Burkholderia RNA 7 (anti-hemB): an 88-nucleotide sequence from Thiobacillus denitrificans. The literature on the family includes a 2012 paper in BMC Genomics by Khoo et al., "Computational discovery and RT-PCR validation of novel Burkholderia conserved and Burkholderia pseudomallei unique sRNAs". Lineage of the source: Bacteria > Betaproteobacteria > Nitrosomonadales > Thiobacillaceae > Thiobacillus denitrificans. It is one of the family's seed sequences. This RNA motif was identified by computational search in b-proteobacteria Burkholderia.
RNA sequence: UCUCCCGCUUCUCCUCCCUGAGCGGGAUGCCUUAAUCCCCUUAAGGCAUUUUUUGCCCCGAUCCCUCCCUUGGUCGGGGCUUUUUGUU
Numbered sequence: 001u002c003u004c005c006c007g008c009u010u011c012u013c014c015u016c017c018c019u020g021a022g023c024g025g026g027a028u029g030c031c032u033u034a035a036u037c038c039c040c041u042u043a044a045g046g047c048a049u050u051u052u053u054u055g056c057c058c059c060g061a062u063c064c065c066u067c068c069c070u071u072g073g074u075c076g077g078g079g080c081u082u083u084u085u086g087u088u
Base pairs, nucleotide, nucleotide: 004026005025006024007023008022009021029047030046031045032044033043034042035041056079057078058077059076060075061074062073063072

The family's consensus secondary structure is taken from published work. Rfam links the family to the GO terms bacterial biofilm matrix and protein binding.